[Rfam]
RNA: Small nucleolar RNA SNORA3/SNORA45 family
RNA sequence: GCCGAGACUAGAGUCACAUCUGGACACUGCCUGUGGUCCUGGUGUGCUAGAGACCUCGGAGAGUAACAACUGAUCUCUAUUCACUGGCUCUGACCACGCUUGGCUCGGUCAGUCACCAGGUCAGUGACACUC
Dot-bracket structure: .(((((.((..((.((((((..(((..........)))..))))))))..))..)))))..........(((((((......(((((.(..(.(.......).)..).)))))....)))))))........